[Rfam]
RNA: Molybdenum/Tungsten riboswitch aptamer (Moco RNA motif)
Organism: Sporomusa termitida
RNA sequence: AUAAUACAUUGCUCCUUAGCCGAAUUGCCUAACCCUUUUAUGGCAUGGCGCUCGGCCGACCGGUAUAGCGGGAAACUGCUAUGCUUCCCGUUUCUUUGGAAAGGAUGCAUUUUUUUGAGGCG
Numbered sequence: 001a002u003a004a005u006a007c008a009u010u011g012c013u014c015c016u017u018a019g020c021c022g023a024a025u026u027g028c029c030u031a032a033c034c035c036u037u038u039u040a041u042g043g044c045a046u047g048g049c050g051c052u053c054g055g056c057c058g059a060c061c062g063g064u065a066u067a068g069c070g071g072g073a074a075a076c077u078g079c080u081a082u083g084c085u086u087c088c089c090g091u092u093u094c095u096u097u098g099g100a101a102a103g104g105a106u107g108c109a110u111u112u113u114u115u116u117g118a119g120g121c122g
Stems, first nucleotide, its partner, number of pairs: 003116002006113001011108002015104002019056005025050001027049003034043002062085010087099002